[Rfam]
RNA sequence: GGCCAGAUAGCUCAGUCGGUAGAGCAAAGGAUUGAAAAUCCUUGUGUCGACAGUUCGAUUCUGUCUCUGGCCA
Numbered sequence: 001g002g003c004c005a006g007a008u009a010g011c012u013c014a015g016u017c018g019g020u021a022g023a024g025c026a027a028a029g030g031a032u033u034g035a036a037a038a039u040c041c042u043u044g045u046g047u048c049g050a051c052a053g054u055u056c057g058a059u060u061c062u063g064u065c066u067c068u069g070g071c072c073a
Stems, first nucleotide, its partner, number of pairs: 001072007010025004027043005049065005
The family of this 73-nucleotide sequence from Legionella massiliensis is "tRNA".
The source organism's lineage runs through Bacteria, Pseudomonadati, Pseudomonadota, Legionellaceae and Legionella.
The family's RNA type in Rfam is transfer RNA.